[Rfam]
RNA sequence: CCAUGGAACAUUCAACGCUGUCGGUGAGUUUGGGAUUCAAAAACAAAAAAACCACCGACCGUUGACUGUACCUUGG
Numbered sequence: 001c002c003a004u005g006g007a008a009c010a011u012u013c014a015a016c017g018c019u020g021u022c023g024g025u026g027a028g029u030u031u032g033g034g035a036u037u038c039a040a041a042a043a044c045a046a047a048a049a050a051a052c053c054a055c056c057g058a059c060c061g062u063u064g065a066c067u068g069u070a071c072c073u074u075g076g
Base pairs, nucleotide, nucleotide: 001076002075003074009068010067012065013064014063015062016061017060020059021058022057023056024055025054026053028052029051030050031049
This 76-nucleotide RNA from Mus musculus belongs to the Rfam family "mir-181 microRNA precursor family". It is one of the family's seed sequences. The family's consensus secondary structure was predicted with PFOLD.